[Rfam]
RNA sequence: CUACUUCCUCUGUCCCACAAUGUAAGGCAUUUUUUGACACUAUAGUAGUGUAAAAAAAUGUCUUACAUUAUGAGACAGAGGGAGUAU
Numbered sequence: 001c002u003a004c005u006u007c008c009u010c011u012g013u014c015c016c017a018c019a020a021u022g023u024a025a026g027g028c029a030u031u032u033u034u035u036g037a038c039a040c041u042a043u044a045g046u047a048g049u050g051u052a053a054a055a056a057a058a059u060g061u062c063u064u065a066c067a068u069u070a071u072g073a074g075a076c077a078g079a080g081g082g083a084g085u086a087u
Stems, first nucleotide, its partner, number of pairs: 003085003007081005013075002016072002019069017037051005

Source information: This 87-nucleotide sequence from Triticum turgidum belongs to the Rfam family "MIR1120/MIR1122 microRNA precursor family". Pairs were carried over by alignment from the consensus structure, which was predicted with RNAalifold. On this family, see Yao et al., Genome Biol 2007: "Cloning and characterization of microRNAs from wheat (Triticum aestivum L.)".